[Rfam]
RNA sequence: CCGUCCCUCAUUGGGGAGUAGCCGCCCCGACGCCACACCUUGCCUACGCAAGGUUCGUUUUGCGCGUUCGGGGGCAUCCGUCAACAGACUUGGCCCGCGCGGCCAUGGCGGAUGCAGCCUCUGGCCUGGCGAGACCGAUGACCCGCAUGCGCGCCGCUUCAGGGC
Numbered sequence: 001c002c003g004u005c006c007c008u009c010a011u012u013g014g015g016g017a018g019u020a021g022c023c024g025c026c027c028c029g030a031c032g033c034c035a036c037a038c039c040u041u042g043c044c045u046a047c048g049c050a051a052g053g054u055u056c057g058u059u060u061u062g063c064g065c066g067u068u069c070g071g072g073g074g075c076a077u078c079c080g081u082c083a084a085c086a087g088a089c090u091u092g093g094c095c096c097g098c099g100c101g102g103c104c105a106u107g108g109c110g111g112a113u114g115c116a117g118c119c120u121c122u123g124g125c126c127u128g129g130c131g132a133g134a135c136c137g138a139u140g141a142c143c144c145g146c147a148u149g150c151g152c153g154c155c156g157c158u159u160c161a162g163g164g165c
Base pairs, nucleotide, nucleotide: 026072027071028070029069030068074115075114076113077112078111079110080109081108082107083106091105092104093103094102095101